[Rfam]
The family of this 180-nucleotide sequence is "RAGATH-22 RNA".

RNA sequence: CCGAUAAGUACUGUAAAGCUUAUCAAUUAAUAUUAGUGUCUUUACAUUUGUAGAGACACUAAUACUAGUUAGUGCCGAAAGUUAUUAAACCGAAUGGAUUUAGUAGGUAAUUAAGUUGAAUUGACAACUUCCCUCAAGUGCUAUAUGCCGUAGGGUGGAAAAACAACGUGCCACUGAUCA
Numbered sequence: 001c002c003g004a005u006a007a008g009u010a011c012u013g014u015a016a017a018g019c020u021u022a023u024c025a026a027u028u029a030a031u032a033u034u035a036g037u038g039u040c041u042u043u044a045c046a047u048u049u050g051u052a053g054a055g056a057c058a059c060u061a062a063u064a065c066u067a068g069u070u071a072g073u074g075c076c077g078a079a080a081g082u083u084a085u086u087a088a089a090c091c092g093a094a095u096g097g098a099u100u101u102a103g104u105a106g107g108u109a110a111u112u113a114a115g116u117u118g119a120a121u122u123g124a125c126a127a128c129u130u131c132c133c134u135c136a137a138g139u140g141c142u143a144u145a146u147g148c149c150g151u152a153g154g155g156u157g158g159a160a161a162a163a164c165a166a167c168g169u170g171c172c173a174c175u176g177a178u179c180a
Stems, first nucleotide, its partner, number of pairs: 003024005011018002027068003031064003036059001038057006089108003113130006147171002149168003155164002